Overview: This 112-nucleotide sequence from Lysobacter sp. Root494 belongs to the Rfam family "Xanthomonadaceae sRNA asX1". Rfam classes the family as a small RNA. Pairs were carried over by alignment from the consensus structure, which was predicted with CMfinder. The organism belongs to Lysobacter, within Bacteria. A reference for the family is Schmidtke et al. (2011), "Genome-wide transcriptome analysis of the plant pathogen Xanthomonas identifies sRNAs with putative virulence functions", Nucleic Acids Res.
[Rfam]
RNA sequence: CACCUCAGCGGGGCAGGCGCUAGACGCCGGCUGGAUUUGGAACAGGGGCUGGCCGAGCGCUCGCGGGGGAAGCACAGGGGUCGAAUGUCGGGGGACGUUCGACCCCUUUUUU
Numbered sequence: 001c002a003c004c005u006c007a008g009c010g011g012g013g014c015a016g017g018c019g020c021u022a023g024a025c026g027c028c029g030g031c032u033g034g035a036u037u038u039g040g041a042a043c044a045g046g047g048g049c050u051g052g053c054c055g056a057g058c059g060c061u062c063g064c065g066g067g068g069g070a071a072g073c074a075c076a077g078g079g080g081u082c083g084a085a086u087g088u089c090g091g092g093g094g095a096c097g098u099u100c101g102a103c104c105c106c107u108u109u110u111u112u
Base pairs, nucleotide, nucleotide: 003068004067005066006065008064009063010062011061012060013058014057016028017027018026019025029054030053031052032051033050034049037046038045076107077106078105079104080103081102082101083100084099085098086097087096088095089094